[Rfam]
RNA sequence: AAUCGCAUUUGGCAAACCCGGAGAAAUCCGGCGACGCAAAACUACAGGGACCGAAAGGUCAGCCAGUUGCAAUC
Numbered sequence: 001a002a003u004c005g006c007a008u009u010u011g012g013c014a015a016a017c018c019c020g021g022a023g024a025a026a027u028c029c030g031g032c033g034a035c036g037c038a039a040a041a042c043u044a045c046a047g048g049g050a051c052c053g054a055a056a057g058g059u060c061a062g063c064c065a066g067u068u069g070c071a072a073u074c
Stems, first nucleotide, its partner, number of pairs: 012037002018031005040068004047064002049060003